Annotation: Shown here is a 120-nucleotide RNA sequence from Salvelinus namaycush, a member of the family "Small nucleolar RNA ACA64". A search with the family's covariance model found it, with a score of 41 bits. The family has 30 seed sequences and 9,537 matches in Rfam 15.1. Its family is annotated with nucleolus and RNA processing in the Gene Ontology. The organism belongs to Salvelinus, within Eukaryota.
RNA sequence: UCUGAGAAUGAUCCUAUAUGUGUCAUUUGUCUGGGGUGAGAGAACUGUCUACAGUAUUGUGGUACGUUAAGCUUAUUGCCUGCUCUGUGACGGUGUAAUAAAACCCAUGUGCUCACAAUC
Number, nucleotide and partner (000 for none) at each position: 001u000002c047003u000004g045005a000006g000007a000008a000009u039010g000011a037012u036013c000014c000015u000016a000017u000018a030019u029020g028021u000022g000023u000024c000025a000026u000027u000028u020029g019030u018031c000032u000033g000034g000035g000036g012037u011038g000039a009040g000041a000042g000043a000044a000045c004046u000047g002048u000049c000050u000051a000052c000053a000054g000055u000056a000057u000058u000059g000060u000061g113062g000063u111064a110065c109066g108067u107068u000069a000070a000071g000072c000073u101074u100075a099076u098077u097078g000079c000080c000081u092082g091083c000084u000085c000086u000087g000088u000089g000090a000091c082092g081093g000094u000095g000096u000097a077098a076099u075100a074101a073102a000103a000104c000105c000106c000107a067108u066109g065110u064111g063112c000113u061114c000115a000116c000117a000118a000119u000120c000